RNA sequence: AGAGCAGAUCACCUUAUCGCUCUUUAUAUUAUUAAAGAGAGGAAAGUCCGGACACCGUAGCACAGUAUAGCGGGUAACGCCCGUCCGUCGAAAGACGAGGACAAGUGCAACAGAAAGAAUGUACAGGUAAUGCUGUAGUGAAAUCAGGUAAACUCUAUGCGGUGCAACGCCAUGUAAACCAGCAUUUGAAGGUUGUGCGCCUAACGUUGGAGGGUAGGCGGUUUGAUCUUGAUAGUAAUGUCAAGACUAGAUAAAUGAUAAGGGCUUUAUUAAUAAAGUUACAGAAUCCGGCUUAUGAUCUGCUUUUUCU
Number, nucleotide and partner (000 for none) at each position: 001a306002g305003a304004g303005c302006a301007g300008a299009u298010c297011a296012c263013c262014u261015u260016a259017u258018c257019g000020c039021u038022c037023u036024u035025u034026a033027u000028a000029u000030u000031a000032u000033u026034a025035a024036a023037g022038a021039g020040a000041g000042g000043a000044a294045a293046g292047u000048c291049c290050g289051g288052a287053c164054a163055c162056c161057g000058u000059a000060g198061c197062a196063c195064a000065g160066u159067a158068u157069a156070g084071c083072g082073g081074g080075u000076a000077a000078c000079g000080c074081c073082c072083g071084u070085c099086c097087g096088u095089c094090g000091a000092a000093a000094g089095a088096c087097g086098a000099g085100g155101a154102c000103a000104a000105g153106u152107g149108c148109a000110a000111c000112a000113g000114a000115a000116a000117g000118a000119a000120u000121g000122u137123a136124c135125a134126g133127g000128u000129a000130a000131u000132g000133c126134u125135g124136u123137a122138g000139u000140g000141a000142a000143a000144u000145c000146a000147g000148g108149u107150a000151a000152a106153c105154u101155c100156u069157a068158u067159g066160c065161g056162g055163u054164g053165c000166a000167a000168c220169g219170c218171c217172a000173u000174g000175u000176a000177a000178a000179c210180c209181a208182g207183c206184a000185u000186u000187u000188g000189a000190a202191g201192g200193u199194u000195g063196u062197g061198c060199g193200c192201c191202u190203a000204a000205c000206g183207u182208u181209g180210g179211a000212g000213g000214g000215u000216a000217g171218g170219c169220g168221g000222u000223u000224u000225g000226a000227u246228c245229u244230u243231g242232a241233u240234a239235g000236u000237a000238a000239u234240g233241u232242c231243a230244a229245g228246a227247c000248u000249a000250g000251a000252u000253a000254a000255a000256u000257g018258a017259u016260a015261a014262g013263g012264g000265c000266u000267u000268u000269a000270u000271u000272a000273a000274u000275a000276a000277a000278g000279u000280u000281a000282c000283a000284g000285a000286a000287u052288c051289c050290g049291g048292c046293u045294u044295a000296u011297g010298a009299u008300c007301u006302g005303c004304u003305u002306u001307u000308u000309c000310u000
Rfam assigns this 310-nucleotide RNA from Aquimarina algicola to the family "Bacterial RNase P class A". The family's RNA type in Rfam is ribozyme. The base pairs follow the family's consensus structure, which is taken from published work. About the family: Ribonuclease P (RNase P) is a ubiquitous endoribonuclease, found in archaea, bacteria and eukarya as well as chloroplasts and mitochondria. Its best characterised activity is the generation of mature 5'-ends of tRNAs by cleaving the 5'-leader elements of precursor-tRNAs. Cellular RNase Ps are ribonucleoproteins. Taxonomically the source falls in Aquimarina (Bacteria, Bacteroidota, Flavobacteriia, Flavobacteriaceae).